[Rfam]
RNA sequence: AGUAGGAGAGUGAUUCAGGCUAACUUUGCUUUUCCAACCAGUCAGUCUUUUUCUCUCUCCUAUU
Numbered sequence: 001a002g003u004a005g006g007a008g009a010g011u012g013a014u015u016c017a018g019g020c021u022a023a024c025u026u027u028g029c030u031u032u033u034c035c036a037a038c039c040a041g042u043c044a045g046u047c048u049u050u051u052u053c054u055c056u057c058u059c060c061u062a063u064u
Base pairs, nucleotide, nucleotide: 001064002063003062004061005060006059007058008057010055012053013052017048018047019046020045021044023042024041025040
Record summary:
This 64-nucleotide sequence from Rhynchophorus ferrugineus belongs to the Rfam family "mir-14 microRNA precursor family". Taxonomically the source falls in Rhynchophorus (Eukaryota, Aparaglossata, Coleoptera, Cucujiformia). The family's consensus secondary structure was predicted with RNAalifold. On this family, see Skalsky et al., BMC Genomics 2010: "Identification of microRNAs expressed in two mosquito vectors, Aedes albopictus and Culex quinquefasciatus". The match comes from Rfam's covariance-model search (59 bits).